[Rfam]
RNA sequence: CGGCUGGUCGGAAACCAGCCAAACAAAGGAA
Numbered sequence: 001c002g003g004c005u006g007g008u009c010g011g012a013a014a015c016c017a018g019c020c021a022a023a024c025a026a027a028g029g030a031a
Stems, first nucleotide, its partner, number of pairs: 002020007
L31-Coriobacteria ribosomal protein leader: a 31-nucleotide RNA from Sandaracinobacteroides saxicola. It is annotated as a cis-regulatory leader. The family is grouped with related families in Rfam's "Ribosomal Protein L31 Leader clan". Pairs were carried over by alignment from the consensus structure, which is taken from published work. Rfam 15.1 lists 105 matches to the family in 84 species. Lineage of the source: Bacteria > Pseudomonadota > Sphingomonadales > Sphingosinicellaceae > Sandaracinobacteroides. A reference for the family is Eckert and Weinberg (2020), "Discovery of 20 novel ribosomal leader candidates in bacteria and archaea", BMC Microbiol.